[Rfam]
RNA sequence: ACUUUUGAGUAAUCGCGCUAAUUUAAUUUGGUGAGGAAAGUCCAUACUCGCACUAGCUGAGAUGCUAGUAGUGUUCAUGCUAAAUGAAACAAUAAGUUUAGGUACUAAUUUUAGUAACGGCAGACGAUUUUUCCUAAGUGUUUGCAUAUGGAAAAAUGUAUCUUUAAAGUGCCACAGUGACGAAGUUUUUAUAGAAAUAUAAAAAGUGGAACGCGGUAAACCCCUUGAGCGAGCAAUUCAAAUUUUGGUAGAAGCACUCAUCUUGUAGAAAUGAAUAUAGAGAUGAGAAAUAAUUUAUUAUUUAGACAGAUGAUUACACCUAUUUUUACGAGAGUUCUAGUUGCUCGUUAUAGUAAGUAUAGGAACAGAAUAUGGCUUAUGAUA
Numbered sequence: 001a002c003u004u005u006u007g008a009g010u011a012a013u014c015g016c017g018c019u020a021a022u023u024u025a026a027u028u029u030g031g032u033g034a035g036g037a038a039a040g041u042c043c044a045u046a047c048u049c050g051c052a053c054u055a056g057c058u059g060a061g062a063u064g065c066u067a068g069u070a071g072u073g074u075u076c077a078u079g080c081u082a083a084a085u086g087a088a089a090c091a092a093u094a095a096g097u098u099u100a101g102g103u104a105c106u107a108a109u110u111u112u113a114g115u116a117a118c119g120g121c122a123g124a125c126g127a128u129u130u131u132u133c134c135u136a137a138g139u140g141u142u143u144g145c146a147u148a149u150g151g152a153a154a155a156a157u158g159u160a161u162c163u164u165u166a167a168a169g170u171g172c173c174a175c176a177g178u179g180a181c182g183a184a185g186u187u188u189u190u191a192u193a194g195a196a197a198u199a200u201a202a203a204a205a206g207u208g209g210a211a212c213g214c215g216g217u218a219a220a221c222c223c224c225u226u227g228a229g230c231g232a233g234c235a236a237u238u239c240a241a242a243u244u245u246u247g248g249u250a251g252a253a254g255c256a257c258u259c260a261u262c263u264u265g266u267a268g269a270a271a272u273g274a275a276u277a278u279a280g281a282g283a284u285g286a287g288a289a290a291u292a293a294u295u296u297a298u299u300a301u302u303u304a305g306a307c308a309g310a311u312g313a314u315u316a317c318a319c320c321u322a323u324u325u326u327u328a329c330g331a332g333a334g335u336u337c338u339a340g341u342u343g344c345u346c347g348u349u350a351u352a353g354u355a356a357g358u359a360u361a362g363g364a365a366c367a368g369a370a371u372a373u374g375g376c377u378u379a380u381g382a383u384a
Base pairs, nucleotide, nucleotide: 004384006382007380009317010316011315012314013313014312016033017032018031019030020029021028038378039377040376042375043374044373045372046371047233048232049231050230051229052069053068054067055066056065057064075228076227077226079224080101081100082099083098084097085096102118103116104115105114106113107112119223120222122163123162124161131153132152133151134150138147139146140145169221170220171217172216173215186205187204188203189202190201191200192199193198237253238252239251257287258286259285260284261283262282263281288303289302290301291300292299293298320362321361322360323359325357326356327355328354